[Rfam]
RNA sequence: CACCGGCCAGGACAGCAGACGGACAGGUUAGCUUCGGGGUUUCGCGAGCGUGAGAGGUAAGCGCCGCGGCCUGCGGCUCCGGGCCCACUUUUCCAGGCCCUGCCUUCGCCUUGCUGGCGGCUCCUACCGACCUCGGGCCCCUGUCGCUUCCAGGUCGGGAAGCUCGCUGCGUUUCUGUGCUGCGGCCUGUGGCUCGAUUGCCCGCGACGCCUGCCUGCCUGCCUGCCUGCCAGCCAGCCAUCCCAGUGGCACACGGCGCCGGCAAGAUGAAGCUCUCCCUGGUGGCUGCGGUGCUGCUG
Numbered sequence: 001c002a003c004c005g006g007c008c009a010g011g012a013c014a015g016c017a018g019a020c021g022g023a024c025a026g027g028u029u030a031g032c033u034u035c036g037g038g039g040u041u042u043c044g045c046g047a048g049c050g051u052g053a054g055a056g057g058u059a060a061g062c063g064c065c066g067c068g069g070c071c072u073g074c075g076g077c078u079c080c081g082g083g084c085c086c087a088c089u090u091u092u093c094c095a096g097g098c099c100c101u102g103c104c105u106u107c108g109c110c111u112u113g114c115u116g117g118c119g120g121c122u123c124c125u126a127c128c129g130a131c132c133u134c135g136g137g138c139c140c141c142u143g144u145c146g147c148u149u150c151c152a153g154g155u156c157g158g159g160a161a162g163c164u165c166g167c168u169g170c171g172u173u174u175c176u177g178u179g180c181u182g183c184g185g186c187c188u189g190u191g192g193c194u195c196g197a198u199u200g201c202c203c204g205c206g207a208c209g210c211c212u213g214c215c216u217g218c219c220u221g222c223c224u225g226c227c228u229g230c231c232a233g234c235c236a237g238c239c240a241u242c243c244c245a246g247u248g249g250c251a252c253a254c255g256g257c258g259c260c261g262g263c264a265a266g267a268u269g270a271a272g273c274u275c276u277c278c279c280u281g282g283u284g285g286c287u288g289c290g291g292u293g294c295u296g297c298u299g
Base pairs, nucleotide, nucleotide: 004288005287006286007285008284009283015180016179017178018175032136033135036132037131061123063121064120065119066118067117069115184194185193186192187191
Notes
A member of the RNA family "bip internal ribosome entry site (IRES)" from Oryctolagus cuniculus, 299 nucleotides long. Gene Ontology term of the family: ribosome binding. Rfam 15.1 lists 234 matches to the family in 131 species. NCBI's taxonomy places the organism under Eukaryota, Tetrapoda, Eutheria, Lagomorpha, Oryctolagus. This family represents the bip internal ribosome entry site (IRES). BiP protein expression has been found to be significantly enhanced by the heat shock response due to IRES-dependent translation. The match comes from Rfam's covariance-model search (146 bits). Pairs were carried over by alignment from the consensus structure, which was predicted with PFOLD.